[Rfam]
RNA sequence: AAGCCAGCCAAAGAAAUCUGCUUACCUGAAUGUGUUUCUGCAGAAAUUUAGAAAAUGCCGGCAACAGGAAAGCCAUUUACAAGCCUUAAAGACACUGAAGUCAUUAAGGUCCCUGAAAAUGCCUACAAGG
Numbered sequence: 001a002a003g004c005c006a007g008c009c010a011a012a013g014a015a016a017u018c019u020g021c022u023u024a025c026c027u028g029a030a031u032g033u034g035u036u037u038c039u040g041c042a043g044a045a046a047u048u049u050a051g052a053a054a055a056u057g058c059c060g061g062c063a064a065c066a067g068g069a070a071a072g073c074c075a076u077u078u079a080c081a082a083g084c085c086u087u088a089a090a091g092a093c094a095c096u097g098a099a100g101u102c103a104u105u106a107a108g109g110u111c112c113c114u115g116a117a118a119a120u121g122c123c124u125a126c127a128a129g130g
Stems, first nucleotide, its partner, number of pairs: 003062003007058001017044005072123001074121002083110007091102003